Shown here is a 586-nucleotide part of an RNA, a member of the family "Bacterial small subunit ribosomal RNA".
The family is grouped with related families in Rfam's "SSU clan".

RNA sequence: UGACGGGGGCCCGCACAAGCGGUGGAUGAUGUGGAUUAAUUCGAUGCAACGCGAAGAACCUUACCUGCUCUUGACAUGUACGGAACUUGCCAGAGAUGGCUUGGUGCCCGAAAGGGAGCCGUAACACAGGUGCUGCAUGGCUGUCGUCAGCUCGUGUCGUGAGAUGUUGGGUUAAGUCCCGCAACGAGCGCAACCCUUGUCAUUAGUUGCCAUCAUUUAGUUGGGCACUCUAAUGAGACUGCCGGUGACAAACCGGAGGAAGGUGGGGAUGACGUCAAGUCCUCAUGGCCCUUAUGAGCAGGGCUUCACACGUCAUACAAUGGUCGGUACAGAGGGUUGCCAAACCGCGAGGUGGAGCUAAUCUCUUAAAGCCGAUCGUAGUCCGGAUUGGAGUCUGCAACUCGACUCCAUGAAGUCGGAAUCGCUAGUAAUCGCAGGUCAGCAUACUGCGGUGAAUACGUUCCCGGGCCUUGUACACACCGCCCGUCACACCAUGGGAGUGGAAUCCGCCAGAAGUGGGUAGGGUAACCGUAAGGAGCCCGCUUACCACGGUAGGUUUCAUGACUGGGGUGAAGUCGUAACAAGG
Numbered sequence: 001u002g003a004c005g006g007g008g009g010c011c012c013g014c015a016c017a018a019g020c021g022g023u024g025g026a027u028g029a030u031g032u033g034g035a036u037u038a039a040u041u042c043g044a045u046g047c048a049a050c051g052c053g054a055a056g057a058a059c060c061u062u063a064c065c066u067g068c069u070c071u072u073g074a075c076a077u078g079u080a081c082g083g084a085a086c087u088u089g090c091c092a093g094a095g096a097u098g099g100c101u102u103g104g105u106g107c108c109c110g111a112a113a114g115g116g117a118g119c120c121g122u123a124a125c126a127c128a129g130g131u132g133c134u135g136c137a138u139g140g141c142u143g144u145c146g147u148c149a150g151c152u153c154g155u156g157u158c159g160u161g162a163g164a165u166g167u168u169g170g171g172u173u174a175a176g177u178c179c180c181g182c183a184a185c186g187a188g189c190g191c192a193a194c195c196c197u198u199g200u201c202a203u204u205a206g207u208u209g210c211c212a213u214c215a216u217u218u219a220g221u222u223g224g225g226c227a228c229u230c231u232a233a234u235g236a237g238a239c240u241g242c243c244g245g246u247g248a249c250a251a252a253c254c255g256g257a258g259g260a261a262g263g264u265g266g267g268g269a270u271g272a273c274g275u276c277a278a279g280u281c282c283u284c285a286u287g288g289c290c291c292u293u294a295u296g297a298g299c300a301g302g303g304c305u306u307c308a309c310a311c312g313u314c315a316u317a318c319a320a321u322g323g324u325c326g327g328u329a330c331a332g333a334g335g336g337u338u339g340c341c342a343a344a345c346c347g348c349g350a351g352g353u354g355g356a357g358c359u360a361a362u363c364u365c366u367u368a369a370a371g372c373c374g375a376u377c378g379u380a381g382u383c384c385g386g387a388u389u390g391g392a393g394u395c396u397g398c399a400a401c402u403c404g405a406c407u408c409c410a411u412g413a414a415g416u417c418g419g420a421a422u423c424g425c426u427a428g429u430a431a432u433c434g435c436a437g438g439u440c441a442g443c444a445u446a447c448u449g450c451g452g453u454g455a456a457u458a459c460g461u462u463c464c465c466g467g468g469c470c471u472u473g474u475a476c477a478c479a480c481c482g483c484c485c486g487u488c489a490c491a492c493c494a495u496g497g498g499a500g501u502g503g504a505a506u507c508c509g510c511c512a513g514a515a516g517u518g519g520g521u522a523g524g525g526u527a528a529c530c531g532u533a534a535g536g537a538g539c540c541c542g543c544u545u546a547c548c549a550c551g552g553u554a555g556g557u558u559u560c561a562u563g564a565c566u567g568g569g570g571u572g573a574a575g576u577c578g579u580a581a582c583a584a585g586g
Stems, first nucleotide, its partner, number of pairs: 001477002003474003007471007015461002019425005024318001026316008034307002040055004064302007077126002079123005086103001089100004105118001107116002129291002132289004138285002140280003143276001145274002150189006156165003168181004195268004200236007210225002214223002239259002242256005322377007334365003339358002344353003384415001389410007431453007480585001482582001485578002490572004495567003500562008509553003516547006523541004529536002